This 121-nucleotide sequence belongs to the Rfam family "Bacteriophage Diversity-Generating Retroelement RNA". The sequence is in the family's curated seed alignment. The family's RNA type in Rfam is small RNA.
RNA sequence: GCUUUGAAAUGGUCAAGGCCAUUCAAGCGACCAUUACAUUGGUCAGCCGCAAUAACAUGCUUAGGCGAAUACAUUAAGAGGUUCACAGUAAGUGAGUAAUAAAGUGAAAGCUGAAGGUGAC
Numbered sequence: 001g002c003u004u005u006g007a008a009a010u011g012g013u014c015a016a017g018g019c020c021a022u023u024c025a026a027g028c029g030a031c032c033a034u035u036a037c038a039u040u041g042g043u044c045a046g047c048c049g050c051a052a053u054a055a056c057a058u059g060c061u062u063a064g065g066c067g068a069a070u071a072c073a074u075u076a077a078g079a080g081g082u083u084c085a086c087a088g089u090a091a092g093u094g095a096g097u098a099a100u101a102a103a104g105u106g107a108a109a110g111c112u113g114a115a116g117g118u119g120a121c
Stems, first nucleotide, its partner, number of pairs: 001028002004026005012019002058067003081121001083120004091112003099105001